Annotation
Rfam assigns this 90-nucleotide RNA sequence from Paenibacillus bovis to the family "SAM riboswitch aptamer (S box leader)". It scores 80 bits against the family's covariance model. The organism belongs to Paenibacillus, within Bacteria.
RNA sequence: UUUCUAUCCAGAGAGGUGGAGGGACUGGCCCUACGAAACCUCGGCAAAAACGUGCCAAUUCCAGCAGACGAUUCGUCUGGGAGAUAGGAA
Numbered sequence: 001u002u003u004c005u006a007u008c009c010a011g012a013g014a015g016g017u018g019g020a021g022g023g024a025c026u027g028g029c030c031c032u033a034c035g036a037a038a039c040c041u042c043g044g045c046a047a048a049a050a051c052g053u054g055c056c057a058a059u060u061c062c063a064g065c066a067g068a069c070g071a072u073u074c075g076u077c078u079g080g081g082a083g084a085u086a087g088g089a090a
Base pairs, nucleotide, nucleotide: 001090002089003088004087005086006085007084008083013042014041015040016039017038021031022030023029025064026063027062028061043056044055045054046053060082065079066078067077068076069075070074
Dot-bracket structure: ((((((((....(((((...(((.[[[[)))......)))))((((......))))...(]]]]((((((...))))))..)))))))))